[Rfam]
RNA sequence: UUUGAGGGGAAUGUUGUCUGGCUCGAGGACACUUUCUUUUAAUCCAUUUUCUUGCAUUAGUUUGUUCCUAUGGAUCUGAUUAUGAUAUUAAUGGAUUGAGCUUGUGCUAGUGCCGUCGGACCAGGCUUCAUUCCCCCCAAU
Number, nucleotide and partner (000 for none) at each position: 001u000002u140003u139004g138005a000006g136007g135008g134009g133010a132011a131012u130013g129014u000015u000016g126017u125018c124019u123020g122021g121022c000023u000024c118025g117026a116027g000028g000029a000030c000031a000032c000033u000034u000035u000036c000037u000038u000039u000040u000041a000042a000043u000044c000045c000046a000047u000048u000049u000050u000051c000052u000053u000054g000055c000056a000057u000058u000059a000060g000061u000062u000063u000064g000065u000066u000067c000068c000069u000070a000071u000072g000073g000074a000075u000076c000077u000078g000079a000080u000081u000082a000083u000084g000085a000086u000087a000088u000089u000090a000091a000092u000093g000094g000095a000096u000097u000098g000099a000100g000101c000102u000103u000104g000105u000106g000107c000108u000109a000110g000111u000112g000113c000114c000115g000116u026117c025118g024119g000120a000121c021122c020123a019124g018125g017126c016127u000128u000129c013130a012131u011132u010133c009134c008135c007136c006137c000138c004139a003140a002141u000
RNA: mir-166 microRNA precursor family